[Rfam]
RNA sequence: CGAUUUUCAAAAGCGCCUGGACUAACCUAAGACAAGAGACGGUUAGUUGACGAGGAGGAGGUUUAUCGAAGUUUUCGGCGGAUACCUCCCGGUUGAACGCACAACCGAAGAUUUCUUCUUUAAAACACGGAGGCAACUCUGUGCACAAAGGGAAGAAAAUGCGACAAA
Numbered sequence: 001c002g003a004u005u006u007u008c009a010a011a012a013g014c015g016c017c018u019g020g021a022c023u024a025a026c027c028u029a030a031g032a033c034a035a036g037a038g039a040c041g042g043u044u045a046g047u048u049g050a051c052g053a054g055g056a057g058g059a060g061g062u063u064u065a066u067c068g069a070a071g072u073u074u075u076c077g078g079c080g081g082a083u084a085c086c087u088c089c090c091g092g093u094u095g096a097a098c099g100c101a102c103a104a105c106c107g108a109a110g111a112u113u114u115c116u117u118c119u120u121u122a123a124a125a126c127a128c129g130g131a132g133g134c135a136a137c138u139c140u141g142u143g144c145a146c147a148a149a150g151g152g153a154a155g156a157a158a159a160u161g162c163g164a165c166a167a168a
Base pairs, nucleotide, nucleotide: 020048021047022046023045024044025043026042027041057089058088059087060086061085066078067077068076069075090107091106092105093104094103095102112158113157114156115155116154117153118152126143127142128141129140130139131138132137

This 168-nucleotide sequence from Neobacillus mesonae belongs to the Rfam family "glmS glucosamine-6-phosphate activated ribozyme aptamer". For this family Rfam cites "Evidence for preorganization of the glmS ribozyme ligand binding pocket" (Hampel and Tinsley, Biochemistry, 2006). It is annotated as a riboswitch.